[Rfam]
RNA sequence: GAUCCGAGAGUAUGGUAAGUAAGAAAUUUAUUUCUUACUUACCAUACUCUCUAUUAGUGUUAUAGUAGUAUAUAAAGUUAUACUUGA
Numbered sequence: 001g002a003u004c005c006g007a008g009a010g011u012a013u014g015g016u017a018a019g020u021a022a023g024a025a026a027u028u029u030a031u032u033u034c035u036u037a038c039u040u041a042c043c044a045u046a047c048u049c050u051c052u053a054u055u056a057g058u059g060u061u062a063u064a065g066u067a068g069u070a071u072a073u074a075a076a077g078u079u080a081u082a083c084u085u086g087a
Stems, first nucleotide, its partner, number of pairs: 006051012019034001021032002024029001
Dot-bracket structure: .....((((((((((((.(.((.(....).)).).....))))))))))))....................................
A member of the RNA family "Plastid-psbM 3UTR RNA", 87 nucleotides long. It is one of the family's seed sequences. A reference for the family is Richter et al. (2023), "Retrograde signaling in plants: A critical review focusing on the GUN pathway and beyond", Plant Commun. The base pairs follow the family's consensus structure, which was predicted with LocARNA. By type it is a cis-regulatory element.